Rfam assigns this 179-nucleotide sequence from Ruegeria pomeroyi to the family "Ruegeria cis52 sRNA". Pairs were carried over by alignment from the consensus structure, which was predicted with RNAfold. The organism belongs to Ruegeria pomeroyi, within Bacteria. The literature on the family includes a 2016 paper in Front Microbiol by Rivers et al., "Experimental Identification of Small Non-Coding RNAs in the Model Marine Bacterium Ruegeria pomeroyi DSS-3". The sequence is in the family's curated seed alignment.
RNA sequence: UUCUCAGCGCGUGCUUGAGCACGAUAUUGGGGAAGGACACGCCCUUGAGCCGCGCGGUGCGGAUAUAUUGCGCCGUCAUCACCUCGGUCAUCGAGGCGCGGGUCAUCCGCGCGAUAUAACCCAUGCCAUAGAGCGCGAUGGUCAGCACCGGCAGGAAGAAGUUCUCGAAUGUCGGCUGC
Number, nucleotide and partner (000 for none) at each position: 001u000002u000003c000004u141005c140006a139007g000008c137009g136010c135011g134012u133013g000014c131015u130016u128017g127018a000019g126020c125021a124022c000023g000024a000025u000026a000027u000028u123029g122030g121031g120032g000033a000034a000035g000036g000037a000038c113039a000040c111041g110042c109043c000044c000045u000046u105047g104048a103049g000050c101051c100052g099053c098054g097055c075056g074057g073058u072059g071060c070061g069062g068063a000064u000065a000066u000067a000068u062069u061070g060071c059072g058073c057074c056075g055076u000077c000078a000079u000080c000081a000082c096083c095084u094085c093086g092087g000088u000089c000090a000091u000092c086093g085094a084095g083096g082097c054098g053099c052100g051101g050102g000103u048104c047105a046106u000107c000108c000109g042110c041111g040112c000113g038114a000115u000116a000117u000118a000119a000120c031121c030122c029123a028124u021125g020126c019127c017128a016129u000130a015131g014132a000133g012134c011135g010136c009137g008138a000139u006140g005141g004142u000143c000144a000145g179146c178147a177148c175149c174150g173151g172152c171153a170154g165155g164156a163157a162158g000159a000160a000161g000162u157163u156164c155165u154166c000167g000168a000169a000170u153171g152172u151173c150174g149175g148176c000177u147178g146179c145